[Rfam]
RNA: Guanidine-I riboswitch aptamer
Organism: Pseudomonas pohangensis
RNA sequence: GCAAUAGCUGACUAGGGUUCCGGCUCGCCUAUCUCCAACAGGAUGCGCGAGUGACUGGUCCGAGAGUUGGCGACCUCCUUCGAGGUUACACGGCGGGAUAAAAGCCCGGGAGAA
Numbered sequence: 001g002c003a004a005u006a007g008c009u010g011a012c013u014a015g016g017g018u019u020c021c022g023g024c025u026c027g028c029c030u031a032u033c034u035c036c037a038a039c040a041g042g043a044u045g046c047g048c049g050a051g052u053g054a055c056u057g058g059u060c061c062g063a064g065a066g067u068u069g070g071c072g073a074c075c076u077c078c079u080u081c082g083a084g085g086u087u088a089c090a091c092g093g094c095g096g097g098a099u100a101a102a103a104g105c106c107c108g109g110g111a112g113a114a
Stems, first nucleotide, its partner, number of pairs: 007071006015061002020058002022055001023052006072087006089109001091112001095107003